[Rfam]
RNA sequence: GUGGCUCAUUCACCUUCUUAUGUCAGCCCCCUCGGGACGCGCUACAUAAACUUCGAAUGACGCACAACAAGGUGCCUGCCGUCCAACUUCUGAUAAUUGCUUUUGCUUUAUCAACCAUCGGGCGAAACGUCGAGUUAGGCACCGCCUUAUUACAUAAUAAAGCCGGGUUAAUACCCGGCUUUAUUGU
Numbered sequence: 001g002u003g004g005c006u007c008a009u010u011c012a013c014c015u016u017c018u019u020a021u022g023u024c025a026g027c028c029c030c031c032u033c034g035g036g037a038c039g040c041g042c043u044a045c046a047u048a049a050a051c052u053u054c055g056a057a058u059g060a061c062g063c064a065c066a067a068c069a070a071g072g073u074g075c076c077u078g079c080c081g082u083c084c085a086a087c088u089u090c091u092g093a094u095a096a097u098u099g100c101u102u103u104u105g106c107u108u109u110a111u112c113a114a115c116c117a118u119c120g121g122g123c124g125a126a127a128c129g130u131c132g133a134g135u136u137a138g139g140c141a142c143c144g145c146c147u148u149a150u151u152a153c154a155u156a157a158u159a160a161a162g163c164c165g166g167g168u169u170a171a172u173a174c175c176c177g178g179c180u181u182u183a184u185u186g187u
Base pairs, nucleotide, nucleotide: 004063005062006060007059008058009057014055016048019044024041071143072142073141074140075139076138077137081123082122083121084120092112093111094110095109159182160181161180162179163178164177165176166175167174168173
This 187-nucleotide sequence from Klebsiella sp. RIT-PI-d belongs to the Rfam family "GlmZ RNA activator of glmS mRNA".
Rfam classes the family as a small RNA.
Rfam describes the family as follows. This RNA was discovered in E. coli during a large scale screen. The sraJ gene was expressed in early logarithmic phase, but its level decreased with cell growth. Specific cleavage products of this RNA were found. Identified in Yersinia pseudotuberculosis as Ysr248/153/sR016.